[Rfam]
RNA sequence: CGCGCUCUGUUUGGUCUCAAAUUCGAACGUCCCCCUCGCCUUUUACUAGGGAGACCCGGGGACCAGGCGGGCUACGGCGUGUUUCCAAUAUUUGCGAUGCUUUCGGGCAU
Numbered sequence: 001c002g003c004g005c006u007c008u009g010u011u012u013g014g015u016c017u018c019a020a021a022u023u024c025g026a027a028c029g030u031c032c033c034c035c036u037c038g039c040c041u042u043u044u045a046c047u048a049g050g051g052a053g054a055c056c057c058g059g060g061g062a063c064c065a066g067g068c069g070g071g072c073u074a075c076g077g078c079g080u081g082u083u084u085c086c087a088a089u090a091u092u093u094g095c096g097a098u099g100c101u102u103u104c105g106g107g108c109a110u
Stems, first nucleotide, its partner, number of pairs: 003079004008069011029055003033051004097110005